[Rfam]
RNA sequence: ACUCGCAUGGUGUGAGUUUUAUGCGGAAAUCCAACCGCGUACAGCCUAGAACGCUGUUUUUCAUCAAGGAGAAAACAAAAUG
Numbered sequence: 001a002c003u004c005g006c007a008u009g010g011u012g013u014g015a016g017u018u019u020u021a022u023g024c025g026g027a028a029a030u031c032c033a034a035c036c037g038c039g040u041a042c043a044g045c046c047u048a049g050a051a052c053g054c055u056g057u058u059u060u061u062c063a064u065c066a067a068g069g070a071g072a073a074a075a076c077a078a079a080a081u082g
Stems, first nucleotide, its partner, number of pairs: 001017006020041007042056004
The family of this 82-nucleotide RNA sequence is "freshwater-2 RNA". Rfam classes the family as a cis-regulatory element. It is one of the family's seed sequences.